[Rfam]
RNA: Group II catalytic intron D1-D4-6
Organism: Aquisphaera giovannonii
RNA sequence: CCAAUCCCGCCUGGCAGAGCAGGGCCAGCAGCCAGAAGCGAGUCUUGCGUGGCGAUGGGGCGACCCAUCCUGCGAAGCGUAGACAGCCAGGCCGAAGGUCGUGUGAUUGAGCCCCGAAAAUGGAAGGCGCGGGGAGCCCUCGUCGUGGUCAUGGGCGGGGGCCGCGCCGGGCGUCGCCGCACCUGGUCCCGCAGGGCGCGCCCGGUCCCGCCGGGGUCGGAGAGCA
Numbered sequence: 001c002c003a004a005u006c007c008c009g010c011c012u013g014g015c016a017g018a019g020c021a022g023g024g025c026c027a028g029c030a031g032c033c034a035g036a037a038g039c040g041a042g043u044c045u046u047g048c049g050u051g052g053c054g055a056u057g058g059g060g061c062g063a064c065c066c067a068u069c070c071u072g073c074g075a076a077g078c079g080u081a082g083a084c085a086g087c088c089a090g091g092c093c094g095a096a097g098g099u100c101g102u103g104u105g106a107u108u109g110a111g112c113c114c115c116g117a118a119a120a121u122g123g124a125a126g127g128c129g130c131g132g133g134g135a136g137c138c139c140u141c142g143u144c145g146u147g148g149u150c151a152u153g154g155g156c157g158g159g160g161g162c163c164g165c166g167c168c169g170g171g172c173g174u175c176g177c178c179g180c181a182c183c184u185g186g187u188c189c190c191g192c193a194g195g196g197c198g199c200g201c202c203c204g205g206u207c208c209c210g211c212c213g214g215g216g217u218c219g220g221a222g223a224g225c226a
Stems, first nucleotide, its partner, number of pairs: 011035004019029002038087002042084004046079002048074005054069006108220001109218001111217006129211002132209004136162003141157004167205007175198004